[Rfam]
RNA sequence: AAAAAAAAUGGGCGCCAACACGCCCAUCUUCUUUUUACCGGUGGUCGCGCCUCGAGCCGCACCUUAACUAAUAAGACGUGUGCCCAGCGACUGCGAAAUUAUAGCGUUUU
Numbered sequence: 001a002a003a004a005a006a007a008a009u010g011g012g013c014g015c016c017a018a019c020a021c022g023c024c025c026a027u028c029u030u031c032u033u034u035u036u037a038c039c040g041g042u043g044g045u046c047g048c049g050c051c052u053c054g055a056g057c058c059g060c061a062c063c064u065u066a067a068c069u070a071a072u073a074a075g076a077c078g079u080g081u082g083c084c085c086a087g088c089g090a091c092u093g094c095g096a097a098a099u100u101a102u103a104g105c106g107u108u109u110u
Stems, first nucleotide, its partner, number of pairs: 008027007042101004048095001055092002058089003

The record is a 110-nucleotide sequence from Mycetohabitans rhizoxinica, which matches "Burkholderia sRNA Bp1_Cand612_SIPHT" in Rfam. For this family Rfam cites "Computational discovery and RT-PCR validation of novel Burkholderia conserved and Burkholderia pseudomallei unique sRNAs" (Khoo et al., BMC Genomics, 2012). The family's RNA type in Rfam is small RNA. NCBI's taxonomy places the organism under Bacteria, Pseudomonadota, Burkholderiales, Mycetohabitans, Mycetohabitans rhizoxinica. It is one of the family's seed sequences. Pairs were carried over by alignment from the consensus structure, which was predicted with RNAalifold.